mir-191 microRNA precursor family: an 87-nucleotide sequence from Leptobrachium leishanense. A reference for the family is Kim et al. (2004), "Identification of many microRNAs that copurify with polyribosomes in mammalian neurons", Proc Natl Acad Sci U S A. Rfam 15.1 lists 621 matches to the family in 455 species.

RNA sequence: UGCAUCAGAUCAGACAACGGAAUCCCAAAAGCAGCUGUUAUGGUGAGUUUCAGCUGCAGUUGGGAUCCGUUAACUGAUUUCUUUGCA
Numbered sequence: 001u002g003c004a005u006c007a008g009a010u011c012a013g014a015c016a017a018c019g020g021a022a023u024c025c026c027a028a029a030a031g032c033a034g035c036u037g038u039u040a041u042g043g044u045g046a047g048u049u050u051c052a053g054c055u056g057c058a059g060u061u062g063g064g065a066u067c068c069g070u071u072a073a074c075u076g077a078u079u080u081c082u083u084u085g086c087a
Stems, first nucleotide, its partner, number of pairs: 009078005017070005023064003027061002031057007